[Rfam]
RNA sequence: GAAGAGUCAAUGAAGCGAAAGGUUGCUAAUGUAAGGAAAUUUUCGUGGAGAAAUGUCUAGAUCUAAGAAUCGGGCGACAA
Numbered sequence: 001g002a003a004g005a006g007u008c009a010a011u012g013a014a015g016c017g018a019a020a021g022g023u024u025g026c027u028a029a030u031g032u033a034a035g036g037a038a039a040u041u042u043u044c045g046u047g048g049a050g051a052a053a054u055g056u057c058u059a060g061a062u063c064u065a066a067g068a069a070u071c072g073g074g075c076g077a078c079a080a
Base pairs, nucleotide, nucleotide: 015046016045017044019043020042021041022040026035027034054079055078056077057076060075062073063072